Small nucleolar RNA SNORD56: a 71-nucleotide RNA from Catagonus wagneri.
Pairs were carried over by alignment from the consensus structure, which was predicted with PFOLD.
By type it is a C/D-box small nucleolar RNA.
[Rfam]
RNA sequence: CUGGAGUGAUGGCAAUAUUUUCUGUCAACAGCAGCUCACCUAGAGAGUGUUGAUACUUGGGGUCUGAGUGA
Dot-bracket structure: .((....((((...........))))..........................................)).